Shown here is a 138-nucleotide RNA sequence from Streptomyces pristinaespiralis, a member of the family "c-di-AMP riboswitch aptamer (ydaO/yuaA leader)". Taxonomically the source falls in Streptomyces pristinaespiralis (Bacteria, Actinomycetota, Kitasatosporales, Streptomyces). Its family is annotated with regulation of gene expression and cyclic-di-AMP binding in the Gene Ontology.
RNA sequence: CGUAGAGGUCGGCCGGACCGUGCAGACCGGCGGAACGGAACCGGCUGGGGGUGAAGACCGCGCGUCAGUGACGUGCGGCCGGGCAACUCACAGGCCCGAACCCGACAGCUCACCUCGUAGGCGUCGGUGAGGGGAUAG
Numbered sequence: 001c002g003u004a005g006a007g008g009u010c011g012g013c014c015g016g017a018c019c020g021u022g023c024a025g026a027c028c029g030g031c032g033g034a035a036c037g038g039a040a041c042c043g044g045c046u047g048g049g050g051g052u053g054a055a056g057a058c059c060g061c062g063c064g065u066c067a068g069u070g071a072c073g074u075g076c077g078g079c080c081g082g083g084c085a086a087c088u089c090a091c092a093g094g095c096c097c098g099a100a101c102c103c104g105a106c107a108g109c110u111c112a113c114c115u116c117g118u119a120g121g122c123g124u125c126g127g128u129g130a131g132g133g134g135a136u137a138g
Stems, first nucleotide, its partner, number of pairs: 012122003018029001020027001030118004037113001042048001049103003058078006081097004